[Rfam]
RNA sequence: ACUGACUCGAAUCCUGCGGGCAAAGCUUUAUUAUACGUUUUGUUCGUUCGGCUCGAGUUAGAA
Numbered sequence: 001a002c003u004g005a006c007u008c009g010a011a012u013c014c015u016g017c018g019g020g021c022a023a024a025g026c027u028u029u030a031u032u033a034u035a036c037g038u039u040u041u042g043u044u045c046g047u048u049c050g051g052c053u054c055g056a057g058u059u060a061g062a063a
Base pairs, nucleotide, nucleotide: 002061003060005058006057007056008055009054010053012051013050017046018045020043021042022041023040025038026037
Dot-bracket structure: .((.((((((.((...((.((((.((..........)).)))).))...)).)))))).))..
The record is a 63-nucleotide RNA sequence from Trichonephila inaurata, which matches "mir-375 microRNA precursor family" in Rfam. The organism belongs to Trichonephila inaurata, within Eukaryota. A reference for the family is Chen et al. (2005), "The developmental miRNA profiles of zebrafish as determined by small RNA cloning", Genes Dev. Its family is annotated with miRNA-mediated post-transcriptional gene silencing and RISC complex in the Gene Ontology. The family's consensus secondary structure was predicted with RNAalifold.